Overview
Rfam assigns this 99-nucleotide RNA sequence from Chanos chanos to the family "Z30 small nucleolar RNA". Pairs were carried over by alignment from the consensus structure, which was predicted with PFOLD. NCBI's taxonomy places the organism under Eukaryota, Bilateria, Otomorpha, Anotophysi, Chanos. On this family, see Galardi et al., Mol Cell Biol 2002: "Purified box C/D snoRNPs are able to reproduce site-specific 2'-O-methylation of target RNA in vitro".
RNA sequence: CCACAGUGAUGAGCUGUGAUUGGGUCUGACCUGGUAUUGCCAUCUUCCCAGGAGAUGCUUUGACCAGGAACUGGUGACAGUAAUCUUCUCUCUGAGUGG
Numbered sequence: 001c002c003a004c005a006g007u008g009a010u011g012a013g014c015u016g017u018g019a020u021u022g023g024g025u026c027u028g029a030c031c032u033g034g035u036a037u038u039g040c041c042a043u044c045u046u047c048c049c050a051g052g053a054g055a056u057g058c059u060u061u062g063a064c065c066a067g068g069a070a071c072u073g074g075u076g077a078c079a080g081u082a083a084u085c086u087u088c089u090c091u092c093u094g095a096g097u098g099g
Stems, first nucleotide, its partner, number of pairs: 001098001003097002039058002
The family's RNA type in Rfam is C/D-box small nucleolar RNA.